[Rfam]
RNA sequence: GGAGGCCUGUGAUGACGUUUAAUAUAUAUUUGCCUACAUUGUUUGAUUUAUCUACUUGUUGGAUAAUGAAAACUGUAAUAAUCUAUCUGAGGCCUUG
Dot-bracket structure: .(.((((...................................................................................)))).).
Numbered sequence: 001g002g003a004g005g006c007c008u009g010u011g012a013u014g015a016c017g018u019u020u021a022a023u024a025u026a027u028a029u030u031u032g033c034c035u036a037c038a039u040u041g042u043u044u045g046a047u048u049u050a051u052c053u054a055c056u057u058g059u060u061g062g063a064u065a066a067u068g069a070a071a072a073c074u075g076u077a078a079u080a081a082u083c084u085a086u087c088u089g090a091g092g093c094c095u096u097g
Stems, first nucleotide, its partner, number of pairs: 002096001004094004
Shown here is a 97-nucleotide sequence from Rhamnella rubrinervis, a member of the family "Small nucleolar RNA SNORD34".
By type it is a C/D-box small nucleolar RNA.
Taxonomically the source falls in Rhamnella (Eukaryota, Mesangiospermae, Rosales, Rhamneae).
snoRNA U34 is found in intron 5 of the ribosomal protein L13a gene in humans.
The family has 14 seed sequences and 1,319 matches in Rfam 15.1.